[Rfam]
RNA: Small nucleolar RNA SNORA72
Organism: Dichanthelium oligosanthes
RNA sequence: UUGAAAAUAUUCACCCGGCACUGAUAAUAUCAACAUCAGUGCCGGUUGAAAAUUUUCAACCGGCACUGAUGUAUUAGUGCCGGUUCUAAAUUUUGAACCGGCACUAAUAGUUCAGCCAUCCGCGGGAAAAAU
Number, nucleotide and partner (000 for none) at each position: 001u000002u000003g057004a056005a055006a000007a000008u000009a000010u000011u000012c000013a000014c000015c000016c044017g043018g042019c041020a040021c039022u038023g037024a036025u035026a000027a000028u000029a000030u000031c000032a000033a000034c000035a025036u024037c023038a022039g021040u020041g019042c018043c017044g016045g000046u000047u000048g000049a000050a000051a000052a000053u000054u000055u005056u004057c003058a000059a000060c000061c124062g123063g000064c000065a000066c000067u000068g000069a000070u000071g000072u000073a000074u107075u106076a105077g104078u103079g102080c101081c100082g099083g098084u097085u096086c095087u000088a000089a000090a000091u000092u000093u000094u000095g086096a085097a084098c083099c082100g081101g080102c079103a078104c077105u076106a075107a074108u000109a000110g000111u000112u000113c000114a000115g000116c000117c000118a000119u000120c000121c000122g000123c062124g061125g000126g000127a000128a000129a000130a000131a000132u000